[Rfam]
RNA sequence: AGAUAACUCAGAGUCCCCCGACAGGGGAUAUGAGUAACGGCUGGUUGGCACAGCCCGGAGUCUUCCUGUUCGACCGCGAGAGCGGACGGUUCACACCGAGAGAACAGGGAGUCUGCAAACCCUAAUAUCCCAACGCUUGGGAUUCCUCCGCCUUCAGGCGGAGGA
Numbered sequence: 001a002g003a004u005a006a007c008u009c010a011g012a013g014u015c016c017c018c019c020g021a022c023a024g025g026g027g028a029u030a031u032g033a034g035u036a037a038c039g040g041c042u043g044g045u046u047g048g049c050a051c052a053g054c055c056c057g058g059a060g061u062c063u064u065c066c067u068g069u070u071c072g073a074c075c076g077c078g079a080g081a082g083c084g085g086a087c088g089g090u091u092c093a094c095a096c097c098g099a100g101a102g103a104a105c106a107g108g109g110a111g112u113c114u115g116c117a118a119a120c121c122c123u124a125a126u127a128u129c130c131c132a133a134c135g136c137u138u139g140g141g142a143u144u145c146c147u148c149c150g151c152c153u154u155c156a157g158g159c160g161g162a163g164g165a
Stems, first nucleotide, its partner, number of pairs: 004037001007034004013029003016025002039055005059114002062111002065108007084097002128142004133137001144165009
Description: Rfam assigns this 165-nucleotide RNA from Natronococcus occultus to the family "Sense overlapping transcript RNA 0042 (sot)". The family has 2 seed sequences and 196 matches in Rfam 15.1. The base pairs follow the family's consensus structure, which was predicted with RNAfold. About the family: It is associated with IS1341-type transposase (tnpB) genes, at the 3'-end in H. salinarum NRC-1. The match comes from Rfam's covariance-model search (93 bits).